[Rfam]
RNA sequence: UGGUCGCUCUAAGUAGUAGUGCCGCAGGUAAAUGUGACUGAUGCUACCUGCUCUCUACUGCUUAAACCGAACU
Numbered sequence: 001u002g003g004u005c006g007c008u009c010u011a012a013g014u015a016g017u018a019g020u021g022c023c024g025c026a027g028g029u030a031a032a033u034g035u036g037a038c039u040g041a042u043g044c045u046a047c048c049u050g051c052u053c054u055c056u057a058c059u060g061c062u063u064a065a066a067c068c069g070a071a072c073u
Stems, first nucleotide, its partner, number of pairs: 002072001004070003010064010024051007
mir-252 microRNA precursor family: a 73-nucleotide RNA from Steinernema hermaphroditum. It scores 59 bits against the family's covariance model. The base pairs follow the family's consensus structure, which was predicted with RNAalifold. Its family is annotated with miRNA-mediated post-transcriptional gene silencing and RISC complex in the Gene Ontology. On this family, see Li et al., BMC Genomics 2009: "Direct sequencing and expression analysis of a large number of miRNAs in Aedes aegypti and a multi-species survey of novel mosquito miRNAs".